Record summary: Shown here is a 106-nucleotide RNA from Serinibacter arcticus, a member of the family "Glycine riboswitch aptamer". NCBI's taxonomy places the organism under Bacteria, Bacillati, Actinomycetota, Actinomycetes, Serinibacter.
RNA sequence: CAUCACCGUGCGGGAGAGUCCGGUCGCCAGCCAGCAGGCGGCGCCGGGCACCGAAGGAGCAAGCACUCCCCGCCAAUCUCUCAGGUACCCGUACCGCACGGCGAGG
Dot-bracket structure: .....((((((((......((.(.....................).)).(((((..(((...((.......))....))))).))).......)))))))).....
Numbered sequence: 001c002a003u004c005a006c007c008g009u010g011c012g013g014g015a016g017a018g019u020c021c022g023g024u025c026g027c028c029a030g031c032c033a034g035c036a037g038g039c040g041g042c043g044c045c046g047g048g049c050a051c052c053g054a055a056g057g058a059g060c061a062a063g064c065a066c067u068c069c070c071c072g073c074c075a076a077u078c079u080c081u082c083a084g085g086u087a088c089c090c091g092u093a094c095c096g097c098a099c100g101g102c103g104a105g106g
Stems, first nucleotide, its partner, number of pairs: 006101008020048002023045001050086003053082002057080003063073002